[Rfam]
RNA sequence: UACAAAGGUUAGGGGUGCUUUUGCAAAGUGCAAAGGCUGAGAUCACACCCUACUACCUGAUCCGGGUAAUACCGGCGGAGGAAAACCUGUUCGCUUAUCU
Numbered sequence: 001u002a003c004a005a006a007g008g009u010u011a012g013g014g015g016u017g018c019u020u021u022u023g024c025a026a027a028g029u030g031c032a033a034a035g036g037c038u039g040a041g042a043u044c045a046c047a048c049c050c051u052a053c054u055a056c057c058u059g060a061u062c063c064g065g066g067u068a069a070u071a072c073c074g075g076c077g078g079a080g081g082a083a084a085a086c087c088u089g090u091u092c093g094c095u096u097a098u099c100u
Base pairs, nucleotide, nucleotide: 006088007087008086009085010084011051012050013049014048016045017037018036019035020034021033022032023031024030056081057080058079062075063074064073065072
Dot-bracket structure: .....(((((((((.(((((((((.....)))))))).......)..))))....(((...((((......))))...)))..)))))............

Rfam assigns this 100-nucleotide sequence from Balneola sp. EhC07 to the family "TPP riboswitch aptamer (THI element)". The match comes from Rfam's covariance-model search (68 bits). Rfam links the family to the GO term thiamine pyrophosphate binding.